[Rfam]
RNA sequence: GAACCGGAUAGAGGCGCAGGCUUCAUCAGUAUUUUUCAGACAUAAGCACCGGAAUGGCUGUCUGAGGAAGAAAGGGGAGGCUGCCGAAGAGAAAGGGAGGUUUUCCGGCCCCUUUUCUCUGGGACGUAUGCAGAAGAUGCUGCGGACUGUCACUUUUUGUGGAGCACUAUCAGGGAU
Numbered sequence: 001g002a003a004c005c006g007g008a009u010a011g012a013g014g015c016g017c018a019g020g021c022u023u024c025a026u027c028a029g030u031a032u033u034u035u036u037c038a039g040a041c042a043u044a045a046g047c048a049c050c051g052g053a054a055u056g057g058c059u060g061u062c063u064g065a066g067g068a069a070g071a072a073a074g075g076g077g078a079g080g081c082u083g084c085c086g087a088a089g090a091g092a093a094a095g096g097g098a099g100g101u102u103u104u105c106c107g108g109c110c111c112c113u114u115u116u117c118u119c120u121g122g123g124a125c126g127u128a129u130g131c132a133g134a135a136g137a138u139g140c141u142g143c144g145g146a147c148u149g150u151c152a153c154u155u156u157u158u159g160u161g162g163a164g165c166a167c168u169a170u171c172a173g174g175g176a177u
Stems, first nucleotide, its partner, number of pairs: 007171005016084004021079004032069008088120010099109001121148002125144003130140003150162004
The family of this 177-nucleotide sequence from Mordavella massiliensis is "Lysine riboswitch aptamer". A search with the family's covariance model found it, with a score of 85 bits. From the family's description: Riboswitches are metabolite binding domains within certain messenger RNAs that serve as precision sensors for their corresponding targets. The family has 47 seed sequences and 3,224 matches in Rfam 15.1. The base pairs follow the family's consensus structure, which is taken from published work.